[Rfam]
RNA sequence: GGCGUGAUAGUGGGCAACGGAAUCCCAAAAGCAGCUGUUUUUCUCUGAACACUCCAGCUGCCCUUGGGUUUCGUUCCUUGCUCUCCUGCCC
Numbered sequence: 001g002g003c004g005u006g007a008u009a010g011u012g013g014g015c016a017a018c019g020g021a022a023u024c025c026c027a028a029a030a031g032c033a034g035c036u037g038u039u040u041u042u043c044u045c046u047g048a049a050c051a052c053u054c055c056a057g058c059u060g061c062c063c064u065u066g067g068g069u070u071u072c073g074u075u076c077c078u079u080g081c082u083c084u085c086c087u088g089c090c091c
Stems, first nucleotide, its partner, number of pairs: 009082005017074009027065002031061007
Record summary:
The family of this 91-nucleotide RNA from Pogona vitticeps is "mir-191 microRNA precursor family". The match comes from Rfam's covariance-model search (96 bits). The base pairs follow the family's consensus structure, which was predicted with RNAalifold. The literature on the family includes a 2004 paper in Proc Natl Acad Sci U S A by Kim et al., "Identification of many microRNAs that copurify with polyribosomes in mammalian neurons".